[Rfam]
Shown here is a 219-nucleotide RNA from Eubacterium coprostanoligenes, a member of the family "Bacterial large signal recognition particle RNA". The base pairs follow the family's consensus structure, which is taken from published work. A search with the family's covariance model found it, with a score of 86 bits. For this family Rfam cites "SRPDB: Signal Recognition Particle Database" (Rosenblad et al., Nucleic Acids Res, 2003). Rfam describes the family as follows. The signal recognition particle (SRP) is a universally conserved ribonucleoprotein involved in the co-translational targeting of proteins to membranes. It is annotated as a non-coding RNA gene.
RNA sequence: UUAAAGAAUAAAAAUAAUUAUUGAUUUAUUAUAUUAUUUAUUGUAUAAUAAUAAGACAGAGGUGCUUUUACACCUUCAGCGUAGCGUAUGGGCCCUGUGCGACAGGAUGCUACGAACCUUGUCAGGCGGGGAACCGAGCAGCAAUAAGUGGAUUAUUCUGUGUGCCUCAGACAAGUCUGUACGUUACGUUGAGGGCGUAGAAGCAUUUUAAUUCUUUAA
Numbered sequence: 001u002u003a004a005a006g007a008a009u010a011a012a013a014a015u016a017a018u019u020a021u022u023g024a025u026u027u028a029u030u031a032u033a034u035u036a037u038u039u040a041u042u043g044u045a046u047a048a049u050a051a052u053a054a055g056a057c058a059g060a061g062g063u064g065c066u067u068u069u070a071c072a073c074c075u076u077c078a079g080c081g082u083a084g085c086g087u088a089u090g091g092g093c094c095c096u097g098u099g100c101g102a103c104a105g106g107a108u109g110c111u112a113c114g115a116a117c118c119u120u121g122u123c124a125g126g127c128g129g130g131g132a133a134c135c136g137a138g139c140a141g142c143a144a145u146a147a148g149u150g151g152a153u154u155a156u157u158c159u160g161u162g163u164g165c166c167u168c169a170g171a172c173a174a175g176u177c178u179g180u181a182c183g184u185u186a187c188g189u190u191g192a193g194g195g196c197g198u199a200g201a202a203g204c205a206u207u208u209u210a211a212u213u214c215u216u217u218a219a
Base pairs, nucleotide, nucleotide: 001219002218003217004216005215006214007213008052009051011049012030013029016026017025018024019023034048035047036046037045039043058209059208060207061206063205064204065203066202067201068200070198071197073195074194075193076192077191078190079189080188081187082186085183086182087181088180089179090178091177092176093175095170096169097168099166100162101161103160104159105158106157107156110151111150112149113148119144120143121142122141127136128135129134